[Rfam]
RNA sequence: UCAGCACGAUAUGGUAUCUUAUGGUAAAGAAAAACCUGCUGUACUAGGUCACGACGAAACAGCUUACGCAAAAAAUCGUCGUGCCGUACUUGUCUACUAAGAUAAUGGUUUUUUUAUGAGCAAUAACUUCAGACCUUAUAUAUUA
Number, nucleotide and partner (000 for none) at each position: 001u047002c000003a045004g044005c000006a000007c041008g040009a000010u000011a000012u000013g000014g035015u034016a000017u032018c000019u030020u029021a000022u000023g000024g000025u000026a000027a000028a000029g020030a019031a000032a017033a000034a015035c014036c000037u000038g000039c000040u008041g007042u000043a000044c004045u003046a000047g001048g000049u000050c000051a000052c000053g000054a144055c000056g000057a141058a000059a139060c000061a000062g136063c000064u000065u133066a000067c000068g130069c000070a000071a000072a000073a000074a000075a124076u123077c000078g121079u119080c118081g117082u116083g115084c000085c000086g106087u105088a000089c000090u102091u000092g000093u000094c000095u000096a000097c000098u000099a000100a000101g000102a090103u000104a000105a087106u086107g000108g000109u000110u000111u000112u000113u000114u000115u083116a082117u081118g080119a079120g000121c078122a000123a076124u075125a000126a000127c000128u000129u000130c068131a000132g000133a065134c000135c000136u062137u000138a000139u059140a000141u057142a000143u000144u054145a000
RNA: CpoB/ybgF ICR thermometer